[Rfam]
RNA sequence: GAAAGGGUACGGAUACCGAAACGUACCUGGGCGAGCAAAGCGCAAGCCCCUAUUAAA
Numbered sequence: 001g002a003a004a005g006g007g008u009a010c011g012g013a014u015a016c017c018g019a020a021a022c023g024u025a026c027c028u029g030g031g032c033g034a035g036c037a038a039a040g041c042g043c044a045a046g047c048c049c050c051u052a053u054u055a056a057a
Base pairs, nucleotide, nucleotide: 005028006027007026008025009024010023011022029049030048031047032046

Rfam assigns this 57-nucleotide RNA from Clostridiales bacterium VE202-26 to the family "S4-Clostridia ribosomal protein leader". Rfam classes the family as a cis-regulatory leader. Its Rfam clan is "Ribosomal Protein S4 Leader clan".